[Rfam]
RNA sequence: GUCGGUCCUCGGUAGUGGCCUCCGGGAAGCGCCGCUGACGGCAGCCCGUGGGCCUCGAUCGAAGACCGAA
Number, nucleotide and partner (000 for none) at each position: 001g000002u069003c068004g067005g066006u065007c064008c000009u062010c061011g060012g059013u058014a000015g000016u000017g054018g053019c052020c051021u050022c000023c048024g047025g046026g045027a000028a000029g000030c000031g000032c000033c000034g000035c000036u000037g000038a000039c000040g000041g000042c000043a000044g000045c026046c025047c024048g023049u000050g021051g020052g019053c018054c017055u000056c000057g000058a013059u012060c011061g010062a009063a000064g007065a006066c005067c004068g003069a002070a000